RNA sequence: ACCGAGUACGCCGAAAAUCGGAAACAGAGUAGGUA
Numbered sequence: 001a002c003c004g005a006g007u008a009c010g011c012c013g014a015a016a017a018u019c020g021g022a023a024a025c026a027g028a029g030u031a032g033g034u035a
Stems, first nucleotide, its partner, number of pairs: 002021004010034003

Shown here is a 35-nucleotide RNA from marine bacterium AO1-C, a member of the family "DUF805b RNA". The base pairs follow the family's consensus structure, which is taken from published work. It is annotated as a cis-regulatory element.